[Rfam]
The family of this 335-nucleotide RNA from Rhodospirillum rubrum is "Alphaproteobacteria transfer-messenger RNA". The organism belongs to Rhodospirillum rubrum, within Bacteria. A reference for the family is Williams and Bartel (1996), "Phylogenetic analysis of tmRNA secondary structure", RNA. The family's consensus secondary structure is taken from published work. The family's RNA type in Rfam is non-coding RNA gene. Bacterial tmRNA, also known as 10Sa RNA or SsrA, is named for its dual tRNA and mRNA-like properties. Its role is to liberate the mRNA from a stalled ribosome. To accomplish this part of the tmRNA is used as a reading frame that ends in a translation stop signal. The broken mRNA is replaced in the ribosome by the tmRNA and translation of the tmRNA leads to addition of a proteolysis tag to the incomplete protein enabling recognition by a protease. Recently a number of permuted tmRNA genes have been found encoded in two parts. tmRNAs have been identified in eubacteria and some chloroplasts but are absent from archaeal and eukaryote nuclear genomes.

RNA sequence: GGGCUUUGCAUCGGCGACGAUCCCCCCUAUAUUGGGGGUGCCGGCUUGUCCGGCUAUGACGCUAAACCCUUUAUGGAAUAAGCGUUGUGGACCCGGGGGCGGUACCCGGCGCCUCCACCAUUCGCCCAAGUCUCCGGCCUCAGCGCCGGAGACCGGGUUCCUGGGGGCGAAAUAGGAUCGACACGCGUGGUAAAGAUAAAGGUUGUGUUCGGCAUGGUAUCCACCGUUAUCGGGCCAACUCUGACAAGUGCCAACGACAACGUUGAACUUGCCGCUGCGGCCUAAACACCCGUAAGCGCGGUUCGGGGGGGCACCGGGCAACAGAAGCCCCCCCA
Numbered sequence: 001g002g003g004c005u006u007u008g009c010a011u012c013g014g015c016g017a018c019g020a021u022c023c024c025c026c027c028u029a030u031a032u033u034g035g036g037g038g039u040g041c042c043g044g045c046u047u048g049u050c051c052g053g054c055u056a057u058g059a060c061g062c063u064a065a066a067c068c069c070u071u072u073a074u075g076g077a078a079u080a081a082g083c084g085u086u087g088u089g090g091a092c093c094c095g096g097g098g099g100c101g102g103u104a105c106c107c108g109g110c111g112c113c114u115c116c117a118c119c120a121u122u123c124g125c126c127c128a129a130g131u132c133u134c135c136g137g138c139c140u141c142a143g144c145g146c147c148g149g150a151g152a153c154c155g156g157g158u159u160c161c162u163g164g165g166g167g168c169g170a171a172a173u174a175g176g177a178u179c180g181a182c183a184c185g186c187g188u189g190g191u192a193a194a195g196a197u198a199a200a201g202g203u204u205g206u207g208u209u210c211g212g213c214a215u216g217g218u219a220u221c222c223a224c225c226g227u228u229a230u231c232g233g234g235c236c237a238a239c240u241c242u243g244a245c246a247a248g249u250g251c252c253a254a255c256g257a258c259a260a261c262g263u264u265g266a267a268c269u270u271g272c273c274g275c276u277g278c279g280g281c282c283u284a285a286a287c288a289c290c291c292g293u294a295a296g297c298g299c300g301g302u303u304c305g306g307g308g309g310g311g312c313a314c315c316g317g318g319c320a321a322c323a324g325a326a327g328c329c330c331c332c333c334c335a
Stems, first nucleotide, its partner, number of pairs: 040054005058209005068202007083187003087184003093109005110169007210226003215237003221233002299316004306333006
Dot-bracket structure: .......................................(((((.....)))))...(((((.....(((((((........(((.(((...(((((.......)))))(((((((..............................................)))))))............))))))........)))))))..)))))[[[..(((...((.]]].....)).))).............................................................[[[[...((((((.]]]]...........))))))..